Annotation
Shown here is a 49-nucleotide RNA sequence, a member of the family "Glutamine riboswitch aptamer (glnA leader)". Its family is annotated with glutamine binding in the Gene Ontology. On this family, see Ren et al., Cell Rep 2015: "Structural and Dynamic Basis for Low-Affinity, High-Selectivity Binding of L-Glutamine by the Glutamine Riboswitch".
[Rfam]
RNA sequence: UUCGUUCAUCCUCGCAAGAGGACGCAAAAGCCGACUGAAGGAACGGGAA
Numbered sequence: 001u002u003c004g005u006u007c008a009u010c011c012u013c014g015c016a017a018g019a020g021g022a023c024g025c026a027a028a029a030g031c032c033g034a035c036u037g038a039a040g041g042a043a044c045g046g047g048a049a
Stems, first nucleotide, its partner, number of pairs: 003045005009022005025046001029036002